[Rfam]
RNA sequence: UCUAUAACUCGAGAUAUGGGUUGAACACAGAAUAGUGUCUGGGCUGUAGGAUAGAUUCUGACUUUUCUUUUGUUGCUACAAUUUGAACUUGAAAACGAUUGUUUUGAAUCUUGGACUCUUCAUGCAUGUUUUAGGCCGAUGUCUUAGCUUUUCAUC
Dot-bracket structure: ..(..((((.(((((((.(((((((.(((.....(((...(((.(..(((((.((..(.(..(....((..(((...........)))..))....).).)..))..)))))..).))).)))...)))))))).)).)))))))))..))..)..
Numbered sequence: 001u002c003u004a005u006a007a008c009u010c011g012a013g014a015u016a017u018g019g020g021u022u023g024a025a026c027a028c029a030g031a032a033u034a035g036u037g038u039c040u041g042g043g044c045u046g047u048a049g050g051a052u053a054g055a056u057u058c059u060g061a062c063u064u065u066u067c068u069u070u071u072g073u074u075g076c077u078a079c080a081a082u083u084u085g086a087a088c089u090u091g092a093a094a095a096c097g098a099u100u101g102u103u104u105u106g107a108a109u110c111u112u113g114g115a116c117u118c119u120u121c122a123u124g125c126a127u128g129u130u131u132u133a134g135g136c137c138g139a140u141g142u143c144u145u146a147g148c149u150u151u152u153c154a155u156c
Stems, first nucleotide, its partner, number of pairs: 003154001006151002008147002011145007019137002021134005027129003035123003041119003045115001048112005054105002058101001060099001063097001068092002072088003
Rfam assigns this 156-nucleotide RNA from Populus deltoides to the family "MIR2912 microRNA precursor family". The base pairs follow the family's consensus structure, which was predicted with RNAalifold. The match comes from Rfam's covariance-model search (135 bits). Its family is annotated with miRNA-mediated post-transcriptional gene silencing and RISC complex in the Gene Ontology.